[Rfam]
RNA sequence: CGUUGGGCGCCAGUACACGGCUAUCAAUGUCGAUGAUCAGUCGGGCGUGGGUUGGUUUGCGGUCGUGGUGCUUGCUUUGGAGAUUACCCUCGGGUGACUCACGCGAUCGUAUAGCCGGCCUGCACCGGUGCACUCUUCGGCAGCCGGGUCAACAUCGGUUAACGGCGUUCGAGAAGCUGCGUUGGCAAUGUAAUCUUGGUCGUUCUUCGGAGCGGUCGAGAGACUUAUAGGCCAGUGUCGGCGAGGAUGCCGUUGACCGAGGAACGCGGCUCGCGCGCUUCUGCGCAGGGCGUCAGUGUAUGGUCAAGGCUGCCCGUGGCGUUAGGCAACUUGUUGACUAGCGUUUACUUUGUCGUGCUUCGGCACGGCAGCGGCGGUCGCUAUGCAUUGGCAAGCCACUAGCGAGUCUACGAAGGUUGACGAAAUGGUUCUCAACGACCCGUCUUGAAACACGG
Numbered sequence: 001c002g003u004u005g006g007g008c009g010c011c012a013g014u015a016c017a018c019g020g021c022u023a024u025c026a027a028u029g030u031c032g033a034u035g036a037u038c039a040g041u042c043g044g045g046c047g048u049g050g051g052u053u054g055g056u057u058u059g060c061g062g063u064c065g066u067g068g069u070g071c072u073u074g075c076u077u078u079g080g081a082g083a084u085u086a087c088c089c090u091c092g093g094g095u096g097a098c099u100c101a102c103g104c105g106a107u108c109g110u111a112u113a114g115c116c117g118g119c120c121u122g123c124a125c126c127g128g129u130g131c132a133c134u135c136u137u138c139g140g141c142a143g144c145c146g147g148g149u150c151a152a153c154a155u156c157g158g159u160u161a162a163c164g165g166c167g168u169u170c171g172a173g174a175a176g177c178u179g180c181g182u183u184g185g186c187a188a189u190g191u192a193a194u195c196u197u198g199g200u201c202g203u204u205c206u207u208c209g210g211a212g213c214g215g216u217c218g219a220g221a222g223a224c225u226u227a228u229a230g231g232c233c234a235g236u237g238u239c240g241g242c243g244a245g246g247a248u249g250c251c252g253u254u255g256a257c258c259g260a261g262g263a264a265c266g267c268g269g270c271u272c273g274c275g276c277g278c279u280u281c282u283g284c285g286c287a288g289g290g291c292g293u294c295a296g297u298g299u300a301u302g303g304u305c306a307a308g309g310c311u312g313c314c315c316g317u318g319g320c321g322u323u324a325g326g327c328a329a330c331u332u333g334u335u336g337a338c339u340a341g342c343g344u345u346u347a348c349u350u351u352g353u354c355g356u357g358c359u360u361c362g363g364c365a366c367g368g369c370a371g372c373g374g375c376g377g378u379c380g381c382u383a384u385g386c387a388u389u390g391g392c393a394a395g396c397c398a399c400u401a402g403c404g405a406g407u408c409u410a411c412g413a414a415g416g417u418u419g420a421c422g423a424a425a426u427g428g429u430u431c432u433c434a435a436c437g438a439c440c441c442g443u444c445u446u447g448a449a450a451c452a453c454g455g
Stems, first nucleotide, its partner, number of pairs: 001437007009429004016146001019145004024140002150419004155414001440455004